[Rfam]
RNA sequence: AAAUGCUGGGAUUACAGGCAUGAGCCACCGCAGUCGACCAUGAUCUGGACAUGUUUGUGCCUGGGAUUGU
Numbered sequence: 001a002a003a004u005g006c007u008g009g010g011a012u013u014a015c016a017g018g019c020a021u022g023a024g025c026c027a028c029c030g031c032a033g034u035c036g037a038c039c040a041u042g043a044u045c046u047g048g049a050c051a052u053g054u055u056u057g058u059g060c061c062u063g064g065g066a067u068u069g070u
Base pairs, nucleotide, nucleotide: 004066006064007063008062009061010060013059014058015057016056017055018054019053020052021051022050025048026047027046033044034043035042
Rfam assigns this 70-nucleotide RNA from Macaca mulatta to the family "mir-619 microRNA precursor family". NCBI's taxonomy places the organism under Eukaryota, Craniata, Tetrapoda, Euarchontoglires, Macaca. Pairs were carried over by alignment from the consensus structure, which was predicted with RNAalifold.